[Rfam]
RNA sequence: CCAUCCGAGGGGCGCUGCAGCAGAGACCCGGAGCCAACGCAUCGCGCGUGCCUUCGUCCUGUCAGGCUCGGUUGGGGCGUUGCCAAACGCAUCAACGGCGCCCAUUCGCA
Numbered sequence: 001c002c003a004u005c006c007g008a009g010g011g012g013c014g015c016u017g018c019a020g021c022a023g024a025g026a027c028c029c030g031g032a033g034c035c036a037a038c039g040c041a042u043c044g045c046g047c048g049u050g051c052c053u054u055c056g057u058c059c060u061g062u063c064a065g066g067c068u069c070g071g072u073u074g075g076g077g078c079g080u081u082g083c084c085a086a087a088c089g090c091a092u093c094a095a096c097g098g099c100g101c102c103c104a105u106u107c108g109c110a
Base pairs, nucleotide, nucleotide: 002074003073005071006070007069008068021061022060023059025057
SAH (S-adenosyl-L-homocysteine) riboswitch aptamer: a 110-nucleotide RNA from Pseudomonas indica. The family has 52 seed sequences and 1,354 matches in Rfam 15.1. The family's consensus secondary structure is taken from published work.